The family of this 106-nucleotide RNA sequence from Flavimaricola marinus is "Glycine riboswitch aptamer".
Pairs were carried over by alignment from the consensus structure.
Gene Ontology term of the family: glycine biosynthetic process.
RNA sequence: ACGUCAGGUUCGGGAGAACCCGGUCCCAAUCGUUCGUGGGUUGGUAUCGGUGCCGAAGGAGCAUCCGCCCCGGUAAACUCUCAGGCAAAAGGACCUUGCCUGGCUA
Numbered sequence: 001a002c003g004u005c006a007g008g009u010u011c012g013g014g015a016g017a018a019c020c021c022g023g024u025c026c027c028a029a030u031c032g033u034u035c036g037u038g039g040g041u042u043g044g045u046a047u048c049g050g051u052g053c054c055g056a057a058g059g060a061g062c063a064u065c066c067g068c069c070c071c072g073g074u075a076a077a078c079u080c081u082c083a084g085g086c087a088a089a090a091g092g093a094c095c096u097u098g099c100c101u102g103g104c105u106a
Stems, first nucleotide, its partner, number of pairs: 006101004012095002020050004052086003055082002059080003065073002